[Rfam]
RNA sequence: CCGAGAUAGGGGUACAAGUUCUGCAGUAUUGCGUUCCUCUGGACCUAAGCAACGACCUGAAAGGGUAGCGACGAUUCUCGGCGUUAGUGGGGAGAGUGCUAGACGUAGUGUCUCCACUGACG
Numbered sequence: 001c002c003g004a005g006a007u008a009g010g011g012g013u014a015c016a017a018g019u020u021c022u023g024c025a026g027u028a029u030u031g032c033g034u035u036c037c038u039c040u041g042g043a044c045c046u047a048a049g050c051a052a053c054g055a056c057c058u059g060a061a062a063g064g065g066u067a068g069c070g071a072c073g074a075u076u077c078u079c080g081g082c083g084u085u086a087g088u089g090g091g092g093a094g095a096g097u098g099c100u101a102g103a104c105g106u107a108g109u110g111u112c113u114c115c116a117c118u119g120a121c122g
Stems, first nucleotide, its partner, number of pairs: 001081006007074001009072001010046004015041002022033004049069002057065002083121011099108003
RNA: Flavobacterium-1 RNA